[Rfam]
RNA sequence: UAGGCAGACAGCAAAUUAUCCGAUGCCCAGGCAGGAUAUGAAAAAACCAUGACGGCUCUGUUGCCGGCCUUGGCAGGAGUUAACCUGAUUUAUGGAAUGG
Numbered sequence: 001u002a003g004g005c006a007g008a009c010a011g012c013a014a015a016u017u018a019u020c021c022g023a024u025g026c027c028c029a030g031g032c033a034g035g036a037u038a039u040g041a042a043a044a045a046a047c048c049a050u051g052a053c054g055g056c057u058c059u060g061u062u063g064c065c066g067g068c069c070u071u072g073g074c075a076g077g078a079g080u081u082a083a084c085c086u087g088a089u090u091u092a093u094g095g096a097a098u099g100g
Base pairs, nucleotide, nucleotide: 003012025032033062034061077098080095
Annotation:
The record is a 100-nucleotide sequence from Desulfosporosinus youngiae, which matches "Pyrrolysine insertion sequence mttB" in Rfam. The source organism's lineage runs through Bacteria, Bacillota, Clostridia, Desulfosporosinus and Desulfosporosinus youngiae.